[Rfam]
7SK RNA: a 311-nucleotide RNA from Cepphus grylle.
Its Rfam clan is "7SK clan".
The match comes from Rfam's covariance-model search (166 bits).
RNA sequence: GGAUGUGAGGGCGAUCUGGCUGCGACAUCUGUCACCCCAUGGAUCGCCAGGGUUGAUUAGGCUGAUGUGAUUGGUGAGGGGGGUGUCCCCCUCCUCCCUCUGCUCCAUGUGUGUCCCUCCUGAAGCUGCAUGCUCAGUCAAAGAUGACGUUCCCCAAUAGAGACACACCAUUCAUCGGUCAAGGGUACAAGGAAGCUGUGCUCCCCUGCUAGAACCUCCAAACAAUUGAUGUUAAAAACUGCUUUUAAUUUCAGAGGCAGACAAAGUCCCCUUUUUCUCUAUCUCUCAAAAAAAAAGUUAAAAUCUGAUUU
Number, nucleotide and partner (000 for none) at each position: 001g106002g105003a104004u000005g100006u000007g000008a099009g098010g097011g096012c000013g093014a092015u000016c000017u000018g090019g089020c000021u000022g000023c000024g087025a086026c085027a084028u083029c082030u081031g000032u079033c078034a000035c074036c073037c000038c069039a068040u000041g000042g000043a066044u065045c064046g062047c061048c060049a000050g000051g000052g000053u000054u000055g000056a000057u000058u000059a000060g048061g047062c046063u000064g045065a044066u043067g000068u039069g038070a000071u000072u000073g036074g035075u000076g000077a000078g033079g032080g000081g030082g029083g028084u027085g026086u025087c024088c000089c019090c018091c000092u014093c013094c000095u000096c011097c010098c009099u008100c005101u000102g000103c000104u003105c002106c001107a000108u000109g000110u000111g000112u000113g000114u000115c000116c000117c162118u161119c160120c137121u136122g135123a134124a000125g133126c132127u000128g000129c000130a000131u000132g126133c125134u123135c122136a121137g120138u157139c000140a000141a000142a000143g000144a000145u000146g152147a151148c000149g000150u000151u147152c146153c000154c000155c000156a000157a138158u000159a000160g119161a118162g117163a000164c000165a000166c000167a000168c000169c000170a000171u000172u000173c000174a000175u000176c000177g000178g000179u000180c000181a000182a000183g000184g000185g000186u000187a000188c000189a000190a000191g000192g000193a000194a000195g267196c266197u265198g000199u000200g000201c000202u261203c000204c000205c000206c260207u259208g258209c257210u000211a000212g000213a000214a000215c000216c256217u255218c254219c000220a000221a000222a251223c000224a249225a000226u247227u000228g000229a000230u000231g000232u000233u000234a000235a000236a000237a000238a000239c000240u000241g000242c000243u000244u000245u000246u000247a226248a000249u224250u000251u222252c000253a000254g218255a217256g216257g209258c208259a207260g206261a202262c000263a000264a000265a197266g196267u195268c000269c000270c000271c000272u000273u000274u000275u000276u000277c000278u000279c000280u000281a000282u000283c000284u000285c000286u000287c000288a000289a000290a000291a000292a000293a000294a000295a000296a310297g309298u308299u307300a306301a000302a000303a000304u000305c000306u300307g299308a298309u297310u296311u000